Bacterial RNase P class B: a 384-nucleotide RNA from Paraliobacillus ryukyuensis. The family's RNA type in Rfam is ribozyme. For this family Rfam cites "Ribonuclease P: unity and diversity in a tRNA processing ribozyme" (Frank and Pace, Annu Rev Biochem, 1998). Rfam links the family to the GO terms dimeric ribonuclease P complex, tRNA processing and ribonuclease P activity. From the family's description: Ribonuclease P (RNase P) is a ubiquitous endoribonuclease, found in archaea, bacteria and eukarya as well as chloroplasts and mitochondria.
[Rfam]
RNA sequence: AUGUUUGCUGUAAUCGCUGCGUAAUUUACUACGUAGAGGAAAGUCCAUGCUCACACAAGCUGAGAUGCUUGUAGUGUUCGUGCUUGAUGAAUUCAUAAAUCAAGGGAGCCAUAUGUUGGUUCACGGCAGAGUAAAUACCUAAGUCAUUUGAUAUGGUGUGAUGCUCUUGAAAGUGCCACAGUGACGUAGUCAGGUUGGAAACAACUUGAGUGGAACGAGGUAAACCCCACGAGUGAGCAACCCAAAUUUAGGUAGGGGCAUCCUGGAUUAGGGAAUACAACCGAAACAGGGACAAGCUUUAUGCUUGUAGAUAGAUGAUUACAACUUACGUACGAGGUUGACCACCGUUUGCAGUACUAUAGUAACAGAACAUGGCUUACCAAA
Numbered sequence: 001a002u003g004u005u006u007g008c009u010g011u012a013a014u015c016g017c018u019g020c021g022u023a024a025u026u027u028a029c030u031a032c033g034u035a036g037a038g039g040a041a042a043g044u045c046c047a048u049g050c051u052c053a054c055a056c057a058a059g060c061u062g063a064g065a066u067g068c069u070u071g072u073a074g075u076g077u078u079c080g081u082g083c084u085u086g087a088u089g090a091a092u093u094c095a096u097a098a099a100u101c102a103a104g105g106g107a108g109c110c111a112u113a114u115g116u117u118g119g120u121u122c123a124c125g126g127c128a129g130a131g132u133a134a135a136u137a138c139c140u141a142a143g144u145c146a147u148u149u150g151a152u153a154u155g156g157u158g159u160g161a162u163g164c165u166c167u168u169g170a171a172a173g174u175g176c177c178a179c180a181g182u183g184a185c186g187u188a189g190u191c192a193g194g195u196u197g198g199a200a201a202c203a204a205c206u207u208g209a210g211u212g213g214a215a216c217g218a219g220g221u222a223a224a225c226c227c228c229a230c231g232a233g234u235g236a237g238c239a240a241c242c243c244a245a246a247u248u249u250a251g252g253u254a255g256g257g258g259c260a261u262c263c264u265g266g267a268u269u270a271g272g273g274a275a276u277a278c279a280a281c282c283g284a285a286a287c288a289g290g291g292a293c294a295a296g297c298u299u300u301a302u303g304c305u306u307g308u309a310g311a312u313a314g315a316u317g318a319u320u321a322c323a324a325c326u327u328a329c330g331u332a333c334g335a336g337g338u339u340g341a342c343c344a345c346c347g348u349u350u351g352c353a354g355u356a357c358u359a360u361a362g363u364a365a366c367a368g369a370a371c372a373u374g375g376c377u378u379a380c381c382a383a384a
Stems, first nucleotide, its partner, number of pairs: 004384003007380001009323007017036006041378003045375005050237005055072006078232005083104006105124001106122006125227002128167004136158004143152003173225002175221003190209008241257003261291005292308006325362002330357004